RNA sequence: AGGUCAUGUCUACUGUACCUCUAUCAUGGUAGACACUCGGCUGCACUGUGGGCGUGAAGACGCCUUAGACGUGAAUCGUCAAUGGUGCGGCGUGAGGCAGGGUUAGAUGCCCU
Numbered sequence: 001a002g003g004u005c006a007u008g009u010c011u012a013c014u015g016u017a018c019c020u021c022u023a024u025c026a027u028g029g030u031a032g033a034c035a036c037u038c039g040g041c042u043g044c045a046c047u048g049u050g051g052g053c054g055u056g057a058a059g060a061c062g063c064c065u066u067a068g069a070c071g072u073g074a075a076u077c078g079u080c081a082a083u084g085g086u087g088c089g090g091c092g093u094g095a096g097g098c099a100g101g102g103u104u105a106g107a108u109g110c111c112c113u
Stems, first nucleotide, its partner, number of pairs: 001020004007035007036096004040091008050065006068080004099113005

The record is a 113-nucleotide sequence from Paenibacillus aquistagni, which matches "epsC RNA" in Rfam. The organism belongs to Paenibacillus, within Bacteria. The family's RNA type in Rfam is cis-regulatory element. A search with the family's covariance model found it, with a score of 101 bits. The family's consensus secondary structure is taken from published work.